[Rfam]
RNA sequence: CGGGGAAAGAAGACCCUGUUGAGCUUGACUCUAGUUUGACAUUGUGAAAAGACAUGGGAGGUGUAGAAUAGGUGGGAGCUCCGGCGCCAGUGAAAUACCACUACUCCCAUUGUUUUUUUACUUAUCCGGUGGAGCGGGGCUGGACUUACGUCCAACUUCUAGUGUUAAGGUCCUUCGCGGGCCGACCCGGGUCGGAGACAUUGUCAGGUGGGGAGUUUGGCUGGGGCGGCACAUCUGUUAAACCAUAACGCAGGUGUCCUAAGGGGGGCUCAUGGAGAACAGAAAUCUCCAGUAGAACAAAAGGGUAAAAGUCCCCUUGAUUUUGAUUUUCAGUGUGAAUACAAACCAUGAAAGUGUGGCCUAUCGAUCCUUUAGUCCCUCGGAGUUUGAGGCUAGAGGUGCCAGAAAAGUUACCACAGGGAUAACUGGCUUGUGGCGGCCAAGCGUUCAUAGCGACGUCGCUUUUUGAUCCUUCGAUGUCGGCUCUUCCUAUCAUACCGAAGCAGAAUUCGGUAAGCGUUGGAUUGUUCACCCACUAAUAGGGAACGUGAGCUGGGUUUAGACCGUCGUGAGACAGGUUAGUUUUACCCUA
Numbered sequence: 001c002g003g004g005g006a007a008a009g010a011a012g013a014c015c016c017u018g019u020u021g022a023g024c025u026u027g028a029c030u031c032u033a034g035u036u037u038g039a040c041a042u043u044g045u046g047a048a049a050a051g052a053c054a055u056g057g058g059a060g061g062u063g064u065a066g067a068a069u070a071g072g073u074g075g076g077a078g079c080u081c082c083g084g085c086g087c088c089a090g091u092g093a094a095a096u097a098c099c100a101c102u103a104c105u106c107c108c109a110u111u112g113u114u115u116u117u118u119u120a121c122u123u124a125u126c127c128g129g130u131g132g133a134g135c136g137g138g139g140c141u142g143g144a145c146u147u148a149c150g151u152c153c154a155a156c157u158u159c160u161a162g163u164g165u166u167a168a169g170g171u172c173c174u175u176c177g178c179g180g181g182c183c184g185a186c187c188c189g190g191g192u193c194g195g196a197g198a199c200a201u202u203g204u205c206a207g208g209u210g211g212g213g214a215g216u217u218u219g220g221c222u223g224g225g226g227c228g229g230c231a232c233a234u235c236u237g238u239u240a241a242a243c244c245a246u247a248a249c250g251c252a253g254g255u256g257u258c259c260u261a262a263g264g265g266g267g268g269c270u271c272a273u274g275g276a277g278a279a280c281a282g283a284a285a286u287c288u289c290c291a292g293u294a295g296a297a298c299a300a301a302a303g304g305g306u307a308a309a310a311g312u313c314c315c316c317u318u319g320a321u322u323u324u325g326a327u328u329u330u331c332a333g334u335g336u337g338a339a340u341a342c343a344a345a346c347c348a349u350g351a352a353a354g355u356g357u358g359g360c361c362u363a364u365c366g367a368u369c370c371u372u373u374a375g376u377c378c379c380u381c382g383g384a385g386u387u388u389g390a391g392g393c394u395a396g397a398g399g400u401g402c403c404a405g406a407a408a409a410g411u412u413a414c415c416a417c418a419g420g421g422a423u424a425a426c427u428g429g430c431u432u433g434u435g436g437c438g439g440c441c442a443a444g445c446g447u448u449c450a451u452a453g454c455g456a457c458g459u460c461g462c463u464u465u466u467u468g469a470u471c472c473u474u475c476g477a478u479g480u481c482g483g484c485u486c487u488u489c490c491u492a493u494c495a496u497a498c499c500g501a502a503g504c505a506g507a508a509u510u511c512g513g514u515a516a517g518c519g520u521u522g523g524a525u526u527g528u529u530c531a532c533c534c535a536c537u538a539a540u541a542g543g544g545a546a547c548g549u550g551a552g553c554u555g556g557g558u559u560u561a562g563a564c565c566g567u568c569g570u571g572a573g574a575c576a577g578g579u580u581a582g583u584u585u586u587a588c589c590c591u592a
Stems, first nucleotide, its partner, number of pairs: 003591003007586002015420004020416002022412005028216004035208007044121010054110007071102005078085002125196005135189004143152003169183005219232001220230003233255006258359002264316006270296002273291006297306002321345003326340004347356003370398006378392004429470001431468001433467001435463006444454002481556001482554004486548001487545005494519001497514006521535003525531001562580004566575003
RNA: Eukaryotic large subunit ribosomal RNA, nucleotides 2361 to 2952
Organism: Plectosphaerella cucumerina